The record is an 80-nucleotide RNA from Chlorobaculum tepidum, which matches "Chlorobi-RRM RNA" in Rfam. The family's consensus secondary structure is taken from published work.

RNA sequence: AAACUUUCUGGACAACGGUUGGGCCAGAGGCUUUCAAGUGAUUUGUGCUUUUGAUUAUUUGGCAGCUUUUCUCUUUCUAU
Numbered sequence: 001a002a003a004c005u006u007u008c009u010g011g012a013c014a015a016c017g018g019u020u021g022g023g024c025c026a027g028a029g030g031c032u033u034u035c036a037a038g039u040g041a042u043u044u045g046u047g048c049u050u051u052u053g054a055u056u057a058u059u060u061g062g063c064a065g066c067u068u069u070u071c072u073c074u075u076u077c078u079a080u
Stems, first nucleotide, its partner, number of pairs: 007028004013021003029067004034062010